[Rfam]
RNA sequence: AUAAACGUUUUCUAGGGUUCCGCAGCAUGGUGGCUGGUCUGGUCCGAGAGAAAACUCACAGCUAAGGCUGUGCCACGGAGGGAUAAAAGCCUGGGAGAG
Numbered sequence: 001a002u003a004a005a006c007g008u009u010u011u012c013u014a015g016g017g018u019u020c021c022g023c024a025g026c027a028u029g030g031u032g033g034c035u036g037g038u039c040u041g042g043u044c045c046g047a048g049a050g051a052a053a054a055c056u057c058a059c060a061g062c063u064a065a066g067g068c069u070g071u072g073c074c075a076c077g078g079a080g081g082g083a084u085a086a087a088a089g090c091c092u093g094g095g096a097g098a099g
Stems, first nucleotide, its partner, number of pairs: 007055006015045002020042002022039001023036004057072006074094001076097001080092003
This 99-nucleotide sequence from Bacillus sp. B-jedd belongs to the Rfam family "Guanidine-I riboswitch aptamer". The base pairs follow the family's consensus structure. The match comes from Rfam's covariance-model search (82 bits). This family represents a conserved RNA structure found upstream of the ykkC and yxkD genes in Bacillus subtilis and related genes in other bacteria. The literature on the family includes a 2004 paper in Proc Natl Acad Sci U S A by Barrick et al., "New RNA motifs suggest an expanded scope for riboswitches in bacterial genetic control".